[Rfam]
Nucleotides: 093
Stems, first nucleotide, its partner, number of pairs: 005036006012029003043087008052078003055074005
Number, partner (000 for none) and nucleotide at each position: 001000c002000c003000a004000c005036g006035u007034c008033c009032c010031g011000a012029c013028g014027c015000a016000a017000u018000c019000c020000c021000c022000c023000c024000c025000c026000g027014g028013c029012g030000c031010c032009g033008g034007g035006a036005c037000u038000u039000c040000c041000c042000c043087g044086c045085c046084g047083g048082g049081c050080u051000c052078c053077g054076g055074c056073g057072c058071c059070c060000u061000c062000c063000c064000c065000c066000c067000c068000c069000c070059g071058g072057g073056c074055g075000u076054c077053c078052g079000g080050a081049g082048c083047c084046c085045g086044g087043c088000u089000u090000c091000u092000u093000c